The family of this 123-nucleotide RNA from Marinilactibacillus sp. 15R is "FMN riboswitch aptamer (RFN element)".
It scores 107 bits against the family's covariance model.
Rfam's curators write: The RFN element is a highly conserved domain that is found frequently in the 5'-untranslated regions of prokaryotic mRNAs that encode for flavin mononucleotide (FMN) biosynthesis and transport proteins.
The organism belongs to Marinilactibacillus, within Bacteria.
RNA sequence: AUUCAUCUUCAGGGGCAGGGCGUAAAUCCCGACCGGUGGUAAAGUCCACGAGCGAAAUUUUUAUUUUGCUGAACUGGUGUGAUUCCAGUACCGACAGUAUAGUCUGGUAUAAAGAAGAUGGAG
Dot-bracket structure: ..((((((((.......(((.......))).[[((((((....[[))))..(((............)))...(((((.......)))))]])).(((....]]))).......))))))))..